[Rfam]
RNA sequence: UGGUUUGAGGAGCGCUGCGACGGGGAUAGCCCUGCCAGGCUCGAACCGGUCUUAUUGCAACGGCGCUCACGUCUU
Numbered sequence: 001u002g003g004u005u006u007g008a009g010g011a012g013c014g015c016u017g018c019g020a021c022g023g024g025g026a027u028a029g030c031c032c033u034g035c036c037a038g039g040c041u042c043g044a045a046c047c048g049g050u051c052u053u054a055u056u057g058c059a060a061c062g063g064c065g066c067u068c069a070c071g072u073c074u075u
Base pairs, nucleotide, nucleotide: 002047003046004045005044006043007042008041021034022033023032024031025030

Source information
The family of this 75-nucleotide sequence from Sulfuriferula sp. AH1 is "SAH (S-adenosyl-L-homocysteine) riboswitch aptamer". Lineage of the source: Bacteria > Pseudomonadota > Betaproteobacteria > Sulfuricellaceae > Sulfuriferula. Rfam links the family to the GO terms regulation of gene expression and S-adenosylhomocysteine metabolic process. Pairs were carried over by alignment from the consensus structure, which is taken from published work. The match comes from Rfam's covariance-model search (65 bits).